[Rfam]
RNA: SAM (S-adenosyl methionine) riboswitch aptamer
RNA sequence: GGUCAAGAGUCUCAGUCGUAAGCCCCGGCUGACUGAGCGGCAACCCUCCUUCCGCGGUGGGGUGCUCCGGGUGACGACCCGGCCGGAUCGCAAACAGCGUGACGGCAAGCGCGGACC
Dot-bracket structure: ((((....(.((((((....((......)).)))))))(((..(((.((......))..))).))).........))))..((((...(((.....)))...))))...........